[Rfam]
RNA sequence: AUUUAUUGGAUGAAUGUGAGGCAUUGGAUUGAUUUCAUUCAAUCCGAGCCCCACAUUCAUCAGUGAUUCGU
Numbered sequence: 001a002u003u004u005a006u007u008g009g010a011u012g013a014a015u016g017u018g019a020g021g022c023a024u025u026g027g028a029u030u031g032a033u034u035u036c037a038u039u040c041a042a043u044c045c046g047a048g049c050c051c052c053a054c055a056u057u058c059a060u061c062a063g064u065g066a067u068u069c070g071u
Stems, first nucleotide, its partner, number of pairs: 004066001007063001009061010020050003024047009
A member of the RNA family "MIR6151 microRNA precursor family" from Nicotiana sylvestris, 71 nucleotides long. The base pairs follow the family's consensus structure, which was predicted with RNAalifold. The source organism's lineage runs through Eukaryota, Mesangiospermae, eudicotyledons, Gunneridae and Nicotiana.